About this RNA
Rfam assigns this 146-nucleotide sequence from Thermanaeromonas toyohensis to the family "c-di-AMP riboswitch aptamer (ydaO/yuaA leader)". The organism belongs to Thermanaeromonas toyohensis, within Bacteria. Its family is annotated with regulation of gene expression and cyclic-di-AMP binding in the Gene Ontology.
RNA sequence: AAAAUAGAGGCGCUGAAUUCCCUUAAAUCUUAGGGAAGCGGGGGACCCGUAUUUUGGGGUGAAUCCCGGGAAAUUUGGUUCCCGGGUAGGGCCGCCCCUGGGCCCGAACCCGUCAGCUAACCCCGUAAGCGCAAGGUAGGGGAUUG
Numbered sequence: 001a002a003a004a005u006a007g008a009g010g011c012g013c014u015g016a017a018u019u020c021c022c023u024u025a026a027a028u029c030u031u032a033g034g035g036a037a038g039c040g041g042g043g044g045a046c047c048c049g050u051a052u053u054u055u056g057g058g059g060u061g062a063a064u065c066c067c068g069g070g071a072a073a074u075u076u077g078g079u080u081c082c083c084g085g086g087u088a089g090g091g092c093c094g095c096c097c098c099u100g101g102g103c104c105c106g107a108a109c110c111c112g113u114c115a116g117c118u119a120a121c122c123c124c125g126u127a128a129g130c131g132c133a134a135g136g137u138a139g140g141g142g143a144u145u146g
Stems, first nucleotide, its partner, number of pairs: 011131004018037006038126006048056002057111003065086007089105004